[Rfam]
RNA: tRNA
Organism: Caulobacter vibrioides
RNA sequence: AGGCCUGUAGCUCAGGUGGUUAGAGCGUACGCCUGAUAAGCGUAAGGUCGGCAGUUCGAGUCUGCCUAGGCCUA
Numbered sequence: 001a002g003g004c005c006u007g008u009a010g011c012u013c014a015g016g017u018g019g020u021u022a023g024a025g026c027g028u029a030c031g032c033c034u035g036a037u038a039a040g041c042g043u044a045a046g047g048u049c050g051g052c053a054g055u056u057c058g059a060g061u062c063u064g065c066c067u068a069g070g071c072c073u074a
Base pairs, nucleotide, nucleotide: 001073002072003071004070005069006068007067010026011025012024013023028044029043030042031041032040050066051065052064053063054062